[Rfam]
RNA sequence: UCCUUAUCAAGAGUGGUGGAGGGACGAGGCCCAAUGAAACCCGGCAGCCUGUUAAAUCAAGGUGCCAAUUCCCGCGGAUAAUUCCGGUAGAUGAGGC
Numbered sequence: 001u002c003c004u005u006a007u008c009a010a011g012a013g014u015g016g017u018g019g020a021g022g023g024a025c026g027a028g029g030c031c032c033a034a035u036g037a038a039a040c041c042c043g044g045c046a047g048c049c050u051g052u053u054a055a056a057u058c059a060a061g062g063u064g065c066c067a068a069u070u071c072c073c074g075c076g077g078a079u080a081a082u083u084c085c086g087g088u089a090g091a092u093g094a095g096g097c
Stems, first nucleotide, its partner, number of pairs: 002096007013042001015041003021032003028072002043066004048062002050059002070089001075086004
The record is a 97-nucleotide sequence from Sedimentibacter hydroxybenzoicus, which matches "SAM riboswitch aptamer (S box leader)" in Rfam. About the family: The SAM riboswitch is found upstream of a number of genes which code for proteins involved in methionine or cysteine biosynthesis in Gram-positive bacteria. Its family is annotated with regulation of gene expression in the Gene Ontology. The base pairs follow the family's consensus structure, which is taken from published work.